[Rfam]
RNA sequence: GAAGCUUAUCAGAAUCUCCAGGGGUACUUAUUAUUUGAAAAGUCCCCCAGGUGUGAUUCUGAUUCGUUUC
Numbered sequence: 001g002a003a004g005c006u007u008a009u010c011a012g013a014a015u016c017u018c019c020a021g022g023g024g025u026a027c028u029u030a031u032u033a034u035u036u037g038a039a040a041a042g043u044c045c046c047c048c049a050g051g052u053g054u055g056a057u058u059c060u061g062a063u064u065c066g067u068u069u070c
Stems, first nucleotide, its partner, number of pairs: 001070005008063009018051002021048004026043002029041001